c-di-GMP-I-GGC riboswitch aptamer: a 76-nucleotide sequence from Pelovirga terrestris.
Pairs were carried over by alignment from the consensus structure, which is taken from published work.
NCBI's taxonomy places the organism under Bacteria, Thermodesulfobacteriota, Desulfuromonadia, Geobacterales, Pelovirga.
The family is grouped with related families in Rfam's "c-di-GMP_I riboswitch clan".
It scores 60 bits against the family's covariance model.
[Rfam]
RNA sequence: CACCACAAAGAGCAAACCCGGAGCAAUCCGGGGACGCAAAGCCACGGAUCCCCCAGGGACAGCCGGGUUGCCGUAG
Numbered sequence: 001c002a003c004c005a006c007a008a009a010g011a012g013c014a015a016a017c018c019c020g021g022a023g024c025a026a027u028c029c030g031g032g033g034a035c036g037c038a039a040a041g042c043c044a045c046g047g048a049u050c051c052c053c054c055a056g057g058g059a060c061a062g063c064c065g066g067g068u069u070g071c072c073g074u075a076g
Base pairs, nucleotide, nucleotide: 001076003073012037013036017032018031019030020029021028022027035062040069041068042067043066045065046064047063049059050058